[Rfam]
RNA sequence: GCUCAUCUGUGUGCAUGAUAACUAUUCAUGCUUAGUGCUGCUUGUUUGUCUAUGUCCUAUAGACUGAUAGCAGUGCACACACACUCAUUGUAGCCAAACAGUAACCAGAGAUCAUAGUACUGGUCUAGUGAAGUUAUAAUGAUGUUUAUGCACAGACCAGCCUCCAAACUCUCUGACAUUG
Dot-bracket structure: ............(((.............((..(..((((((..(((.(..(((.....)))..).))).))))))...)..)).....)))...............(((((........((((((..(((.((((.....))).).....))).)))))).........))))).......
Numbered sequence: 001g002c003u004c005a006u007c008u009g010u011g012u013g014c015a016u017g018a019u020a021a022c023u024a025u026u027c028a029u030g031c032u033u034a035g036u037g038c039u040g041c042u043u044g045u046u047u048g049u050c051u052a053u054g055u056c057c058u059a060u061a062g063a064c065u066g067a068u069a070g071c072a073g074u075g076c077a078c079a080c081a082c083a084c085u086c087a088u089u090g091u092a093g094c095c096a097a098a099c100a101g102u103a104a105c106c107a108g109a110g111a112u113c114a115u116a117g118u119a120c121u122g123g124u125c126u127a128g129u130g131a132a133g134u135u136a137u138a139a140u141g142a143u144g145u146u147u148a149u150g151c152a153c154a155g156a157c158c159a160g161c162c163u164c165c166a167a168a169c170u171c172u173c174u175g176a177c178a179u180u181g
Stems, first nucleotide, its partner, number of pairs: 013091003029083002033079001036075006044068003048064001051061003107174005120160006128153003132145001133143003
This 181-nucleotide sequence from Polypterus senegalus belongs to the Rfam family "Small nucleolar RNA SNORA23". A search with the family's covariance model found it, with a score of 88 bits. The members of this family belong to the H/ACA class of snoRNAs which are thought to guide the sites of modification of uridines to pseudouridines. This family includes human snoRNA ACA23 (SNORA23) and mouse snoMBI-1.